[Rfam]
RNA: Small nucleolar RNA SNORA13
Organism: Cyprinus carpio
RNA sequence: UGCCUUUUUGUGUUGCCCAUUCAUUUUCCAUUAGAUGAAUGUGGUGUCUUCUAAGGCGCACAAUAAAUCUUGAAAUAGCCACAUUUAUGAGAGAACACUCUUCAUUGUUCCUCUUGCUUGCGCUAUGACAAGAACAGCA
Numbered sequence: 001u002g003c004c005u006u007u008u009u010g011u012g013u014u015g016c017c018c019a020u021u022c023a024u025u026u027u028c029c030a031u032u033a034g035a036u037g038a039a040u041g042u043g044g045u046g047u048c049u050u051c052u053a054a055g056g057c058g059c060a061c062a063a064u065a066a067a068u069c070u071u072g073a074a075a076u077a078g079c080c081a082c083a084u085u086u087a088u089g090a091g092a093g094a095a096c097a098c099u100c101u102u103c104a105u106u107g108u109u110c111c112u113c114u115u116g117c118u119u120g121c122g123c124u125a126u127g128a129c130a131a132g133a134a135c136a137g138c139a
Stems, first nucleotide, its partner, number of pairs: 002057005012048001014046004018041008069132004075126005087118001090115002092112002096107002